[Rfam]
RNA sequence: CCCGCCACUAUGCAAGUCUGUGAAAGUGACUGUGUAUAAUCCAGAGGAGGCUAAUAAGGACCCAGCUCUAGGAAACAGGUCUGCCCUGUAAACUAAUGGGCAAUUCUGUGCCGAAAGGUCUGGAACAAAC
Numbered sequence: 001c002c003c004g005c006c007a008c009u010a011u012g013c014a015a016g017u018c019u020g021u022g023a024a025a026g027u028g029a030c031u032g033u034g035u036a037u038a039a040u041c042c043a044g045a046g047g048a049g050g051c052u053a054a055u056a057a058g059g060a061c062c063c064a065g066c067u068c069u070a071g072g073a074a075a076c077a078g079g080u081c082u083g084c085c086c087u088g089u090a091a092a093c094u095a096a097u098g099g100g101c102a103a104u105u106c107u108g109u110g111c112c113g114a115a116a117g118g119u120c121u122g123g124a125a126c127a128a129a130c
Base pairs, nucleotide, nucleotide: 005047006046008044009043018034020030021028022027062123063122064121065120066118067117069115071112072111076108077107078106079105084100085099086098
A member of the RNA family "Small nucleolar RNA SNORA65" from Triplophysa tibetana, 130 nucleotides long. Taxonomically the source falls in Triplophysa (Eukaryota, Metazoa, Actinopteri, Osteoglossocephalai). Rfam's curators write: U65 belongs to the H/ACA class of snoRNAs which are thought to guide the sites of modification of uridines to pseudouridines. The literature on the family includes a 2001 paper in EMBO J by Huttenhofer et al., "RNomics: an experimental approach that identifies 201 candidates for novel, small, non-messenger RNAs in mouse".